RNA sequence: GAGGGCAGGCCCCUCGAAGCCGGUCGUCAGGGGCAGGCUUCAAACCGCCGCAAGCUGCUUCGGUCAAAAGCCGUGGUGGUGAGCGUUGCGGAAAAGGCGGGACGUGAUCCCGUCAGGU
Numbered sequence: 001g002a003g004g005g006c007a008g009g010c011c012c013c014u015c016g017a018a019g020c021c022g023g024u025c026g027u028c029a030g031g032g033g034c035a036g037g038c039u040u041c042a043a044a045c046c047g048c049c050g051c052a053a054g055c056u057g058c059u060u061c062g063g064u065c066a067a068a069a070g071c072c073g074u075g076g077u078g079g080u081g082a083g084c085g086u087u088g089c090g091g092a093a094a095a096g097g098c099g100g101g102a103c104g105u106g107a108u109c110c111c112g113u114c115a116g117g118u
Stems, first nucleotide, its partner, number of pairs: 001015005016041006023034003046117001048091006054080002057077003061073004096114006